[Rfam]
RNA: mir-160 microRNA precursor family
Organism: Macleaya cordata
RNA sequence: AUAUGCCUGGCUCCCUGUAUGCCAUUUCCAAAGUUUCAUCAGGAAAUCUGAUGGUCUUGGUAGAUGGCGUAUGAGGAGCCAAGCAUAU
Numbered sequence: 001a002u003a004u005g006c007c008u009g010g011c012u013c014c015c016u017g018u019a020u021g022c023c024a025u026u027u028c029c030a031a032a033g034u035u036u037c038a039u040c041a042g043g044a045a046a047u048c049u050g051a052u053g054g055u056c057u058u059g060g061u062a063g064a065u066g067g068c069g070u071a072u073g074a075g076g077a078g079c080c081a082a083g084c085a086u087a088u
Stems, first nucleotide, its partner, number of pairs: 001088006008081007016073009027062001029060001